[Rfam]
RNA sequence: UGCCUUUUGUGUUACCCAUUCUUUUCACUUCCUCUAAAGAAUGUGGUGUCAGCAAAGGCAUACAGUAAAACCCUUGGUUUGGCCUUUACAAAGUGAUUUCUGUGUCUCACCUUGUCUAAAGCUCAUACCAAGUACAACA
Numbered sequence: 001u002g003c004c005u006u007u008u009g010u011g012u013u014a015c016c017c018a019u020u021c022u023u024u025u026c027a028c029u030u031c032c033u034c035u036a037a038a039g040a041a042u043g044u045g046g047u048g049u050c051a052g053c054a055a056a057g058g059c060a061u062a063c064a065g066u067a068a069a070a071c072c073c074u075u076g077g078u079u080u081g082g083c084c085u086u087u088a089c090a091a092a093g094u095g096a097u098u099u100c101u102g103u104g105u106c107u108c109a110c111c112u113u114g115u116c117u118a119a120a121g122c123u124c125a126u127a128c129c130a131a132g133u134a135c136a137a138c139a
Base pairs, nucleotide, nucleotide: 002059003058004057005056006055007054010051011050013048014047015046016045017043018042019041020040021039022038023037024036073132074131075130076129077128078127080125081124082123087118088117090115092113095106096105
Small nucleolar RNA SNORA13: a 139-nucleotide sequence from Sinocyclocheilus grahami. Rfam links the family to the GO terms RNA processing and nucleolus. It is annotated as an H/ACA-box small nucleolar RNA. Pairs were carried over by alignment from the consensus structure, which was predicted with CMfinder. The family is grouped with related families in Rfam's "SNORA13 clan". ACA13 is a member of the H/ACA class of snoRNA that guide the sites of modification of uridines to pseudouridines.